[Rfam]
RNA sequence: GGGAGUGUAUGGGGUUCUGGUGUCCCUCCUGGACUUCAAAUCCAGUGUUGCCUGUGAGGAACAGGCAGGGUGGGUUCGAUUCCCACACGCUCCC
Numbered sequence: 001g002g003g004a005g006u007g008u009a010u011g012g013g014g015u016u017c018u019g020g021u022g023u024c025c026c027u028c029c030u031g032g033a034c035u036u037c038a039a040a041u042c043c044a045g046u047g048u049u050g051c052c053u054g055u056g057a058g059g060a061a062c063a064g065g066c067a068g069g070g071u072g073g074g075u076u077c078g079a080u081u082c083c084c085a086c087a088c089g090c091u092c093c094c
Stems, first nucleotide, its partner, number of pairs: 001094008012027003017022001029045005048068005071085004
Dot-bracket structure: ((((((((...(((..(....)..))).(((((.......)))))..(((((...........)))))..((((.......)))).))))))))
Shown here is a 94-nucleotide sequence from Thermodesulfovibrio yellowstonii, a member of the family "Selenocysteine transfer RNA". The organism belongs to Thermodesulfovibrio yellowstonii, within Bacteria. The match comes from Rfam's covariance-model search (73 bits). The base pairs follow the family's consensus structure, which is taken from published work.